[Rfam]
RNA sequence: CGCCUUGCAUGGCAACAUGUAUGGUGAUCAGGCAGAAGUCAGCAGCGGCCAUAGUAGCCCAACGCCCGGGGUAAUGCCCGGGACAUGGUGAAGGGC
Number, nucleotide and partner (000 for none) at each position: 001c026002g025003c000004c023005u000006u021007g020008c019009a018010u017011g016012g000013c000014a000015a000016c011017a010018u009019g008020u007021a006022u000023g004024g000025u002026g001027a000028u000029c000030a000031g000032g000033c000034a000035g000036a000037a000038g000039u000040c045041a000042g000043c000044a000045g040046c000047g000048g096049c095050c094051a000052u000053a000054g000055u000056a000057g089058c088059c087060c000061a000062a000063c000064g000065c000066c081067c080068g079069g000070g000071g000072u000073a000074a000075u000076g000077c000078c000079c068080g067081g066082g000083a000084c000085a000086u000087g059088g058089u057090g000091a000092a000093g000094g050095g049096c048
RNA: Group II catalytic intron D1-D4-1
Organism: Desulfobacteraceae bacterium